Background
The family of this 169-nucleotide sequence from Clostridium tagluense is "M-box riboswitch aptamer (ykoK leader)". A reference for the family is Barrick et al. (2004), "New RNA motifs suggest an expanded scope for riboswitches in bacterial genetic control", Proc Natl Acad Sci U S A. About the family: M-box riboswitch, also know as ykoK leader is described as a metaloregulatory RNA that sense divalent metals and function as a genetic control element of genes related to divalent metal transport in bacteria. It was first reported upstream of the B.subtilis ykoK gene and genes with related functions in other bacteria. A search with the family's covariance model found it, with a score of 145 bits. Gene Ontology terms of the family: response to magnesium ion and regulation of gene expression.
RNA sequence: UAAUAUUUUUGUUAGGUGAGGUUACUGUAUAAGACACACGCUACUGCCCAGAAAUGUCGAGAGACGCCAACGGGUCAGCAGGUAUUACCGGAUUAAGGUUUUACUUAAUGUAGCUGAGUAUCAAAUCUCUAAGCUGUACAGUGCUAAAACUCAACGAGUGGGGAUGAGC
Numbered sequence: 001u002a003a004u005a006u007u008u009u010u011g012u013u014a015g016g017u018g019a020g021g022u023u024a025c026u027g028u029a030u031a032a033g034a035c036a037c038a039c040g041c042u043a044c045u046g047c048c049c050a051g052a053a054a055u056g057u058c059g060a061g062a063g064a065c066g067c068c069a070a071c072g073g074g075u076c077a078g079c080a081g082g083u084a085u086u087a088c089c090g091g092a093u094u095a096a097g098g099u100u101u102u103a104c105u106u107a108a109u110g111u112a113g114c115u116g117a118g119u120a121u122c123a124a125a126u127c128u129c130u131a132a133g134c135u136g137u138a139c140a141g142u143g144c145u146a147a148a149a150c151u152c153a154a155c156g157a158g159u160g161g162g163g164a165u166g167a168g169c
Base pairs, nucleotide, nucleotide: 005165006164007163008162009161010160011155012154013096015151016150017149020145021144022143025141026140027139028138029137030136032135033134040114041113042112043111044110046075047074048073049072055066056065057064058063081105082104083103084102087099088098089097116129117128118127